[Rfam]
Overview
Small nucleolar RNA U105B: an 80-nucleotide RNA from Equus caballus. Rfam's curators put it in the seed alignment. Rfam 15.1 lists 132 matches to the family in 131 species. The family's RNA type in Rfam is C/D-box small nucleolar RNA. The family is grouped with related families in Rfam's "SNORD105 clan". On this family, see Yang et al., Nucleic Acids Res 2006: "snoSeeker: an advanced computational package for screening of guide and orphan snoRNA genes in the human genome".
RNA sequence: CUCCAUGUGGCUGAUGACAGCGCUGCUGCUGAGACUCUGUGACUGCUCAGUGUCAAAGUAAACGCUCUGACGCACCGUGG
Numbered sequence: 001c002u003c004c005a006u007g008u009g010g011c012u013g014a015u016g017a018c019a020g021c022g023c024u025g026c027u028g029c030u031g032a033g034a035c036u037c038u039g040u041g042a043c044u045g046c047u048c049a050g051u052g053u054c055a056a057a058g059u060a061a062a063c064g065c066u067c068u069g070a071c072g073c074a075c076c077g078u079g080g
Stems, first nucleotide, its partner, number of pairs: 006074004010021004029050005
Dot-bracket structure: .....((((((((....)))).......(((((............)))))....................))))......